[Rfam]
RNA sequence: UGUCAUGCUUUUCCACAGCUUUCUUGAACUUCAUCUCUUGUUUAGUUUCUCUCUCUCUCUCUCUCUCGAUGAAGUGGGGAAGUUCAAGAAAGCUGUGGGAAGACAUGGCAA
Numbered sequence: 001u002g003u004c005a006u007g008c009u010u011u012u013c014c015a016c017a018g019c020u021u022u023c024u025u026g027a028a029c030u031u032c033a034u035c036u037c038u039u040g041u042u043u044a045g046u047u048u049c050u051c052u053c054u055c056u057c058u059c060u061c062u063c064u065c066u067c068g069a070u071g072a073a074g075u076g077g078g079g080a081a082g083u084u085c086a087a088g089a090a091a092g093c094u095g096u097g098g099g100a101a102g103a104c105a106u107g108g109c110a111a
Base pairs, nucleotide, nucleotide: 003108004107005106006105007104013098014097015096017094018093019092020091021090022089024087025086026085027084029082030081031080032079
RNA: MIR396 microRNA precursor family
Organism: Actinidia chinensis